[Rfam]
RNA: Alphaproteobacteria transfer-messenger RNA
RNA sequence: CACCUUGAAACUUUGCCGCAGGUCCCCUAUUUUAAAUCUGUCCUUCGGGACUAUGGCGAUAAACGCGCUCGCAAUACACGGAUCGGACCCGGGGGCGGUACCCGGCGACUCCACCAACAAACCCUUCAUUUGGGGGCGCAUGGGGUCGAAAUAGGAUCGACGGACGUCUAAAGGGGUUAGCUUUUGCUCGGUGAGAUACCACCGAUAUCGGUUCAAUAUAGCUAGUUGCAAAUGACAACAAAGCACCGAUGGCUCUGGCUGCGUAAGCAGUUCGAAAUAUCGAAAACUUAAGCCCUACCGCUUUGCGGCCGUAGGCGGGGUUUGCAGGUACCUGGCAACAGAAACCUGCGCU
Numbered sequence: 001c002a003c004c005u006u007g008a009a010a011c012u013u014u015g016c017c018g019c020a021g022g023u024c025c026c027c028u029a030u031u032u033u034a035a036a037u038c039u040g041u042c043c044u045u046c047g048g049g050a051c052u053a054u055g056g057c058g059a060u061a062a063a064c065g066c067g068c069u070c071g072c073a074a075u076a077c078a079c080g081g082a083u084c085g086g087a088c089c090c091g092g093g094g095g096c097g098g099u100a101c102c103c104g105g106c107g108a109c110u111c112c113a114c115c116a117a118c119a120a121a122c123c124c125u126u127c128a129u130u131u132g133g134g135g136g137c138g139c140a141u142g143g144g145g146u147c148g149a150a151a152u153a154g155g156a157u158c159g160a161c162g163g164a165c166g167u168c169u170a171a172a173g174g175g176g177u178u179a180g181c182u183u184u185u186g187c188u189c190g191g192u193g194a195g196a197u198a199c200c201a202c203c204g205a206u207a208u209c210g211g212u213u214c215a216a217u218a219u220a221g222c223u224a225g226u227u228g229c230a231a232a233u234g235a236c237a238a239c240a241a242a243g244c245a246c247c248g249a250u251g252g253c254u255c256u257g258g259c260u261g262c263g264u265a266a267g268c269a270g271u272u273c274g275a276a277a278u279a280u281c282g283a284a285a286a287c288u289u290a291a292g293c294c295c296u297a298c299c300g301c302u303u304u305g306c307g308g309c310c311g312u313a314g315g316c317g318g319g320g321u322u323u324g325c326a327g328g329u330a331c332c333u334g335g336c337a338a339c340a341g342a343a344a345c346c347u348g349c350g351c352u
Stems, first nucleotide, its partner, number of pairs: 040051004055188005065181002067177004079166002083163003089105005106148007189204004195214002198212003318333004324349006